Background
This 57-nucleotide RNA from Glycyrrhiza inflata belongs to the Rfam family "Plastid-rps18 3UTR RNA". Rfam's curators write: Plastid rps18 is a non-coding RNA (ncRNA) present in plastids. It was identified as a short stem-loop motif in the 3 prime untranslate region (3UTR) of rps18 gene. The family's RNA type in Rfam is cis-regulatory element. The literature on the family includes a 2023 paper in Plant Commun by Richter et al., "Retrograde signaling in plants: A critical review focusing on the GUN pathway and beyond".
RNA sequence: UGCAACUAUUUUACGAUUAAGAAGCAAUUGCCUUUUGUACAGAUUAUGCAUCAAUUU
Number, nucleotide and partner (000 for none) at each position: 001u000002g000003c000004a000005a000006c000007u000008a000009u000010u000011u000012u000013a000014c000015g000016a000017u000018u037019a036020a035021g034022a033023a000024g031025c030026a000027a000028u000029u000030g025031c024032c000033u022034u021035u020036u019037g018038u000039a000040c000041a000042g000043a000044u000045u000046a000047u000048g000049c000050a000051u000052c000053a000054a000055u000056u000057u000
The sequence is in the family's curated seed alignment. Rfam 15.1 lists 1,462 matches to the family in 409 species.